[Rfam]
RNA: SAM riboswitch aptamer (S box leader)
RNA sequence: UUCUUAUCAAGAGAGGCGGAGGGACUGGCCCUGGGAAACCUCGGCAACGGACUCUUCUCAUGGAGAGUGCUGUGCCAAAUCCAGCAAGCGAUUAGCUUGGCAGAUAAGAA
Numbered sequence: 001u002u003c004u005u006a007u008c009a010a011g012a013g014a015g016g017c018g019g020a021g022g023g024a025c026u027g028g029c030c031c032u033g034g035g036a037a038a039c040c041u042c043g044g045c046a047a048c049g050g051a052c053u054c055u056u057c058u059c060a061u062g063g064a065g066a067g068u069g070c071u072g073u074g075c076c077a078a079a080u081c082c083a084g085c086a087a088g089c090g091a092u093u094a095g096c097u098u099g100g101c102a103g104a105u106a107a108g109a110a
Stems, first nucleotide, its partner, number of pairs: 001110008013042004021031003025084004043076004048072002051068004080102001085099005